Description:
Rfam assigns this 69-nucleotide sequence from Rhizobium album to the family "S-element".
RNA sequence: UGUCAAGACUUUUUAGCGUCGGUUUCGGCGAGACGAUUUCCUUUGCCUUGCAGAAGGUGAGAAGAAAUG
Numbered sequence: 001u002g003u004c005a006a007g008a009c010u011u012u013u014u015a016g017c018g019u020c021g022g023u024u025u026c027g028g029c030g031a032g033a034c035g036a037u038u039u040c041c042u043u044u045g046c047c048u049u050g051c052a053g054a055a056g057g058u059g060a061g062a063a064g065a066a067a068u069g
Base pairs, nucleotide, nucleotide: 010064011063012062013061014060017059018058019057020056023055024054025053027051030048032046035043036042
The match comes from Rfam's covariance-model search (51 bits). About the family: This family represents a group of S-elements from p42d and related plasmids. The S-element has multiple functions and is believed to act as a negative regulator of repC transcription, be required for efficient replication and act as a translational enhancer of repC.